[Rfam]
RNA: Metazoan signal recognition particle RNA
Organism: Bugula neritina
RNA sequence: GCUGGGAGUGGUGGCGUACUCCUGUAAUCCAGCUACUUGGAGGCUAGGUUUGGUGGACGGCUUGAGGGCAGGGGCUCUGCUGCAGGCCUGCCUAUGUUGAUCGGGCGUCCGCACUAAGCACGGUGUCAACAUGGUGGCAUCAGGGGAGCUUGAUGUGACCAGGUUGCCUAAGGAGAAGCGUACCGGCCCAGGGUGGAAACACAGCAGGCAAAAGCUUCCGCAUGGUGCAGUAGUGGGAUAGCGCCCGUGAAUAGGAGUUCUGUGGUAGCCUGUCCAACACAGUUGGACCCAUUCCUUU
Numbered sequence: 001g002c003u004g005g006g007a008g009u010g011g012u013g014g015c016g017u018a019c020u021c022c023u024g025u026a027a028u029c030c031a032g033c034u035a036c037u038u039g040g041a042g043g044c045u046a047g048g049u050u051u052g053g054u055g056g057a058c059g060g061c062u063u064g065a066g067g068g069c070a071g072g073g074g075c076u077c078u079g080c081u082g083c084a085g086g087c088c089u090g091c092c093u094a095u096g097u098u099g100a101u102c103g104g105g106c107g108u109c110c111g112c113a114c115u116a117a118g119c120a121c122g123g124u125g126u127c128a129a130c131a132u133g134g135u136g137g138c139a140u141c142a143g144g145g146g147a148g149c150u151u152g153a154u155g156u157g158a159c160c161a162g163g164u165u166g167c168c169u170a171a172g173g174a175g176a177a178g179c180g181u182a183c184c185g186g187c188c189c190a191g192g193g194u195g196g197a198a199a200c201a202c203a204g205c206a207g208g209c210a211a212a213a214g215c216u217u218c219c220g221c222a223u224g225g226u227g228c229a230g231u232a233g234u235g236g237g238a239u240a241g242c243g244c245c246c247g248u249g250a251a252u253a254g255g256a257g258u259u260c261u262g263u264g265g266u267a268g269c270c271u272g273u274c275c276a277a278c279a280c281a282g283u284u285g286g287a288c289c290c291a292u293u294c295c296u297u298u
Base pairs, nucleotide, nucleotide: 001044002043003042004023005022006021007020008019009018010017028041029040030039046296047295048294051291052290053289058285059284060283061282062281066275067274068273069272070271071270072269077268078267079266080265081264082263083262084261085260086259088257089256091255092254093253094252095251097249102247103246104245105244106243107242108241109237110236112235113234114233115232116231118228119227120226121225123223124222125221126220127166128165129164130163132161133160134159135158137156138155139154140153141152142151143150144149167173168172175218176217177216178215179214186209187208188207193202194201195200